[Rfam]
A member of the RNA family "TPP riboswitch aptamer (THI element)" from Streptomyces hainanensis, 112 nucleotides long.
RNA sequence: AACCGCACCCACGGGAGCCCGGCGGACCGGGCUGAGAGGGAGGCUGUCCGGCCUCCGACCGUACGAACCUGAUCCGGGUCAUGCCGGCGAAGGGAGGAGGCAGGCGCAUGGG
Numbered sequence: 001a002a003c004c005g006c007a008c009c010c011a012c013g014g015g016a017g018c019c020c021g022g023c024g025g026a027c028c029g030g031g032c033u034g035a036g037a038g039g040g041a042g043g044c045u046g047u048c049c050g051g052c053c054u055c056c057g058a059c060c061g062u063a064c065g066a067a068c069c070u071g072a073u074c075c076g077g078g079u080c081a082u083g084c085c086g087g088c089g090a091a092g093g094g095a096g097g098a099g100g101c102a103g104g105c106g107c108a109u110g111g112g
Base pairs, nucleotide, nucleotide: 006100009097010096011062012061013060014059017032018031019030020029021028039056040055041054042053043052044051045050068093069092070091074087075086076085077084
The source organism's lineage runs through Bacteria, Actinomycetota, Actinomycetes, Kitasatosporales and Streptomyces. It scores 63 bits against the family's covariance model.